[Rfam]
RNA sequence: AAAGUCAUAUGGCAAAUCUAUCGAAAGGUAGAGACGCAAAGCCACGGGUCUAAAACAGUACUUGAUGCUGCCACGACAGCCGGGUUGCAGAA
Numbered sequence: 001a002a003a004g005u006c007a008u009a010u011g012g013c014a015a016a017u018c019u020a021u022c023g024a025a026a027g028g029u030a031g032a033g034a035c036g037c038a039a040a041g042c043c044a045c046g047g048g049u050c051u052a053a054a055a056c057a058g059u060a061c062u063u064g065a066u067g068c069u070g071c072c073a074c075g076a077c078a079g080c081c082g083g084g085u086u087g088c089a090g091a092a
Base pairs, nucleotide, nucleotide: 012037013036017032018031019030020029021028022027040086041085042084043083045082046081047080048077049076050075056070057069058068059067060066
Dot-bracket structure: ...........((...((((((....))))))...))..((((.((((((.....(((((.....)))))....)))..)))))))......
This 92-nucleotide sequence from Desulfosporosinus metallidurans belongs to the Rfam family "c-di-GMP-I riboswitch aptamer". About the family: GEMM was predicted in a large-scale screen for bacterial structured RNA regulatory elements.